A member of the RNA family "Iron response element I" from Loxodonta africana, 36 nucleotides long. The base pairs follow the family's consensus structure, which is taken from published work. By type it is a cis-regulatory element. Lineage of the source: Eukaryota > Metazoa > Gnathostomata > Amniota > Loxodonta. A reference for the family is Hentze et al. (1987), "Identification of the iron-responsive element for the translational regulation of human ferritin mRNA", Science. A search with the family's covariance model found it, with a score of 37 bits.
RNA sequence: CGAUUUCUUGCUUCAACAAUGCUUGGACAGAACCAG
Numbered sequence: 001c002g003a004u005u006u007c008u009u010g011c012u013u014c015a016a017c018a019a020u021g022c023u024u025g026g027a028c029a030g031a032a033c034c035a036g
Base pairs, nucleotide, nucleotide: 002034005032006031007030008029010028012027013026014025015024016023017021